[Rfam]
RNA sequence: GAGCGUUAUGGGCUAACUCGUCAAAAGGCGGGGUCGCAAAGCUAUAGGGUCUAAGGUGCUUUUAAGCAUUAUGACAGCCUGGCUGCAGAA
Numbered sequence: 001g002a003g004c005g006u007u008a009u010g011g012g013c014u015a016a017c018u019c020g021u022c023a024a025a026a027g028g029c030g031g032g033g034u035c036g037c038a039a040a041g042c043u044a045u046a047g048g049g050u051c052u053a054a055g056g057u058g059c060u061u062u063u064a065a066g067c068a069u070u071a072u073g074a075c076a077g078c079c080u081g082g083c084u085g086c087a088g089a090a
Stems, first nucleotide, its partner, number of pairs: 012037002017032006040084004046080003049075003056069004
RNA: c-di-GMP-I riboswitch aptamer
Organism: Anaerocolumna aminovalerica